[Rfam]
Background:
RAGATH-18 RNA: a 69-nucleotide sequence. Rfam's curators put it in the seed alignment. Pairs were carried over by alignment from the consensus structure, which is taken from published work. Actinobacteria, Firmicutes, Fusobacteria, Thermotogae (1 example).

RNA sequence: CCUCCGGAGCGUUACACCAAAUGUUAGUAGCCAGUAUUACCGGCAAAAGCAGACGCGAAGAACGAGGAA
Numbered sequence: 001c002c003u004c005c006g007g008a009g010c011g012u013u014a015c016a017c018c019a020a021a022u023g024u025u026a027g028u029a030g031c032c033a034g035u036a037u038u039a040c041c042g043g044c045a046a047a048a049g050c051a052g053a054c055g056c057g058a059a060g061a062a063c064g065a066g067g068a069a
Stems, first nucleotide, its partner, number of pairs: 001067004009056005022051003030044003034040002